This 113-nucleotide RNA sequence from Orthohepacivirus hominis belongs to the Rfam family "J750 non-coding RNA (containing SLSL761 and SL783)".

RNA sequence: AUUCCGCUCGUCGGCGCUCCUGUAGGGGGCGUCGCAAGAGCUCUCGCACAUGGUGUGAGAGCCCUUGAGGACGGAAUAAAUUUUGCAACAGGGAACUUACCCGGUUGCUCUUU
Numbered sequence: 001a002u003u004c005c006g007c008u009c010g011u012c013g014g015c016g017c018u019c020c021u022g023u024a025g026g027g028g029g030c031g032u033c034g035c036a037a038g039a040g041c042u043c044u045c046g047c048a049c050a051u052g053g054u055g056u057g058a059g060a061g062c063c064c065u066u067g068a069g070g071a072c073g074g075a076a077u078a079a080a081u082u083u084u085g086c087a088a089c090a091g092g093g094a095a096c097u098u099a100c101c102c103g104g105u106u107g108c109u110c111u112u113u
Stems, first nucleotide, its partner, number of pairs: 001077005008071002012034007019026002035067004040062010085108005091102003

Rfam's curators put it in the seed alignment. The family's consensus secondary structure was predicted with RNAfold. The literature on the family includes a 2016 paper in Mol Cell by Pirakitikulr et al., "The Coding Region of the HCV Genome Contains a Network of Regulatory RNA Structures". By type it is a cis-regulatory element.